This 359-nucleotide part of an RNA from Salinarchaeum laminariae belongs to the Rfam family "Archaeal small subunit ribosomal RNA". The literature on the family includes a 2001 paper in Science by Yusupov et al., "Crystal structure of the ribosome at 5.5 A resolution". The family has 86 seed sequences and 709 matches in Rfam 15.1. The sequence is in the family's curated seed alignment. Its family is annotated with structural constituent of ribosome and ribosome in the Gene Ontology. The family is grouped with related families in Rfam's "SSU clan".
RNA sequence: GGCCUAAAGCGUCCGUAGCCGGCCAGACAGGUCCAUCGGGAAAUCUGCACGCCCAACGUGCAGGCGUCCGGUGGAAACCAGUUGGCUUGGGGCCGGAAGAUCCAGGGGGUACGUCCGGGGUAGGAGUGAAAUCCCGUAAUCCCGGACGGACCACCGGUGGCGAAAGCGCCCUGGAAGGACGGACCCGACGGUGAGGGACGAAAGCUAAGGUCACGAACCGGAUUAGAUACCCGGGUAGUCUUAGCUGUAAACGAUGUCCGCUAGGUGUGGCGCAGGCUACGAGCCUGCGCUGUGCCGCAGUGAAGACGCUAAGCGGACCGCCUGGGAAGUACGUCUGCAAGGAUGAAACUUAAAGGAAU
Numbered sequence: 001g002g003c004c005u006a007a008a009g010c011g012u013c014c015g016u017a018g019c020c021g022g023c024c025a026g027a028c029a030g031g032u033c034c035a036u037c038g039g040g041a042a043a044u045c046u047g048c049a050c051g052c053c054c055a056a057c058g059u060g061c062a063g064g065c066g067u068c069c070g071g072u073g074g075a076a077a078c079c080a081g082u083u084g085g086c087u088u089g090g091g092g093c094c095g096g097a098a099g100a101u102c103c104a105g106g107g108g109g110u111a112c113g114u115c116c117g118g119g120g121u122a123g124g125a126g127u128g129a130a131a132u133c134c135c136g137u138a139a140u141c142c143c144g145g146a147c148g149g150a151c152c153a154c155c156g157g158u159g160g161c162g163a164a165a166g167c168g169c170c171c172u173g174g175a176a177g178g179a180c181g182g183a184c185c186c187g188a189c190g191g192u193g194a195g196g197g198a199c200g201a202a203a204g205c206u207a208a209g210g211u212c213a214c215g216a217a218c219c220g221g222a223u224u225a226g227a228u229a230c231c232c233g234g235g236u237a238g239u240c241u242u243a244g245c246u247g248u249a250a251a252c253g254a255u256g257u258c259c260g261c262u263a264g265g266u267g268u269g270g271c272g273c274a275g276g277c278u279a280c281g282a283g284c285c286u287g288c289g290c291u292g293u294g295c296c297g298c299a300g301u302g303a304a305g306a307c308g309c310u311a312a313g314c315g316g317a318c319c320g321c322c323u324g325g326g327a328a329g330u331a332c333g334u335c336u337g338c339a340a341g342g343a344u345g346a347a348a349c350u351u352a353a354a355g356g357a358a359u
Stems, first nucleotide, its partner, number of pairs: 001322003009319001011199004016193001018192003022086005030079002032075009045063007090186003093182003101175007108152002112148008123134003160167002204245006213239002218234004256318006264296014300307002324351003333344004